Shown here is a 127-nucleotide sequence from Galbula dea, a member of the family "Small nucleolar RNA SNORA3/SNORA45 family".
The family is grouped with related families in Rfam's "SNORA3 clan".

RNA sequence: AUCGAGACUAGAGUCACAUCUUGACGUGUUUGGUUGUCCUGGUGUGCUAUAGUUCUCGGACACGAACAGCUGAUCUCUGUUCACUGGCUGCGAUCUAUCUCAGCCAGCCACCGAAUCAGUCACAUGA
Numbered sequence: 001a002u003c004g005a006g007a008c009u010a011g012a013g014u015c016a017c018a019u020c021u022u023g024a025c026g027u028g029u030u031u032g033g034u035u036g037u038c039c040u041g042g043u044g045u046g047c048u049a050u051a052g053u054u055c056u057c058g059g060a061c062a063c064g065a066a067c068a069g070c071u072g073a074u075c076u077c078u079g080u081u082c083a084c085u086g087g088c089u090g091c092g093a094u095c096u097a098u099c100u101c102a103g104c105c106a107g108c109c110a111c112c113g114a115a116u117c118a119g120u121c122a123c124a125u126g127a
Stems, first nucleotide, its partner, number of pairs: 002059005007053003012048002015046006023038004070119005076114002084107004089102002092099002
Overview
The base pairs follow the family's consensus structure, which was predicted with RNAalifold. It scores 82 bits against the family's covariance model. The members of this family belong to the H/ACA class of snoRNAs which are thought to guide the sites of modification of uridines to pseudouridines. This family includes mouse snoMBI-28 and human homologues ACA3 (SNORA3) and ACA3-2 (SNORA45). Gene Ontology terms of the family: nucleolus and RNA processing.